[Rfam]
RNA: FMN riboswitch aptamer (RFN element)
Organism: Butyrivibrio sp. YAB3001
RNA sequence: AAUAUUCUUCGGGGCAGGGUGUAAUUCCCAACCGGCGGUAUAGUCCGCGACCCGCUUAGGCGGCUGAUUUGGUGCAAUUCCAAAACCGACAGUAAAGUCUGGAUGAGAGAAGAAUUCA
Numbered sequence: 001a002a003u004a005u006u007c008u009u010c011g012g013g014g015c016a017g018g019g020u021g022u023a024a025u026u027c028c029c030a031a032c033c034g035g036c037g038g039u040a041u042a043g044u045c046c047g048c049g050a051c052c053c054g055c056u057u058a059g060g061c062g063g064c065u066g067a068u069u070u071g072g073u074g075c076a077a078u079u080c081c082a083a084a085a086c087c088g089a090c091a092g093u094a095a096a097g098u099c100u101g102g103a104u105g106a107g108a109g110a111a112g113a114a115u116u117c118a
Base pairs, nucleotide, nucleotide: 004115005114006113007112008111009110010109017029018028019027031098032097033088034087035048036047037046038045043086044085052063053062068084069083070082071081072080090101091100092099